[Rfam]
RNA sequence: UAGUAGAUGCACCCUGAUUAAUUAACUCCCCACCAAUUUUGGUUGGGAGUUUUUUUU
Dot-bracket structure: ..((......)).............(((((.((((....)))).)))))........